[Rfam]
RNA sequence: UCUGGGAAGUGAUGAUAGAUAUAUCGAUAUAUCAAUAGGCACAUGCGAUGCUGAACAACAUAUUUGCACGUCAGUCUGAUCCCAUC
Dot-bracket structure: ..(((((........................................................................)))))..
Small nucleolar RNA Z122: an 86-nucleotide sequence from Raphanus sativus. By type it is a C/D-box small nucleolar RNA. Rfam links the family to the GO terms RNA processing and nucleolus. Rfam 15.1 lists 822 matches to the family in 247 species.